[Rfam]
The family of this 81-nucleotide RNA sequence is "Enterobacterial sRNA STnc230". Pairs were carried over by alignment from the consensus structure, which was predicted with WAR. Rfam's curators put it in the seed alignment.
RNA sequence: UCAUCAUCAUUUACCGCCAACGAUAAAAGAAUAUUACGAUAGCAAAAGUCUCCCAUCCGUGGGAGACGUUUUUGGCCAGUU
Numbered sequence: 001u002c003a004u005c006a007u008c009a010u011u012u013a014c015c016g017c018c019a020a021c022g023a024u025a026a027a028a029g030a031a032u033a034u035u036a037c038g039a040u041a042g043c044a045a046a047a048g049u050c051u052c053c054c055a056u057c058c059g060u061g062g063g064a065g066a067c068g069u070u071u072u073u074g075g076c077c078a079g080u081u
Stems, first nucleotide, its partner, number of pairs: 043074005048067007